[Rfam]
RNA sequence: CAAAAAUAAUACCACUGUAGAAGCGUGCUCGUCGCGACCCCUGCCAGCCCUUUUCAGGGCUGCAAUUCUACA
Numbered sequence: 001c002a003a004a005a006a007u008a009a010u011a012c013c014a015c016u017g018u019a020g021a022a023g024c025g026u027g028c029u030c031g032u033c034g035c036g037a038c039c040c041c042u043g044c045c046a047g048c049c050c051u052u053u054u055c056a057g058g059g060c061u062g063c064a065a066u067u068c069u070a071c072a
Stems, first nucleotide, its partner, number of pairs: 013036001016072007023035003045062007
Shown here is a 72-nucleotide RNA sequence from Parnassius apollo, a member of the family "Mammalian CPEB3 ribozyme".